[Rfam]
RNA sequence: AUUCAAUGAUGUUCUGUUUAGAGCGUCCACAUCCUGUGGACAACACAGAACGACUUACAUCCUGUAAC
Numbered sequence: 001a002u003u004c005a006a007u008g009a010u011g012u013u014c015u016g017u018u019u020a021g022a023g024c025g026u027c028c029a030c031a032u033c034c035u036g037u038g039g040a041c042a043a044c045a046c047a048g049a050a051c052g053a054c055u056u057a058c059a060u061c062c063u064g065u066a067a068c
Base pairs, nucleotide, nucleotide: 011051012050013049014048015047016046017045026040027039028038029037030036055067056066057065058064
RNA: Bacillaceae-1 RNA
Organism: Ornithinibacillus hominis